[Rfam]
Rfam assigns this 68-nucleotide RNA sequence from Sporolactobacillus inulinus to the family "Bacillaceae-1 RNA". It scores 66 bits against the family's covariance model. The base pairs follow the family's consensus structure, which is taken from published work.
Nucleotides: 068
Stems, first nucleotide, its partner, number of pairs: 011051007026040005055067004
Number, partner (000 for none) and nucleotide at each position: 001000u002000u003000u004000a005000a006000a007000g008000g009000a010000a011051c012050u013049u014048u015047c016046g017045c018000u019000a020000a021000g022000u023000a024000c025000g026040c027039a028038u029037a030036c031000g032000u033000c034000c035000u036030g037029u038028a039027u040026g041000c042000a043000a044000c045017g046016c047015g048014a049013a050012a051011g052000u053000c054000a055067u056066c057065a058064c059000a060000u061000c062000c063000u064058g065057u066056g067055a068000a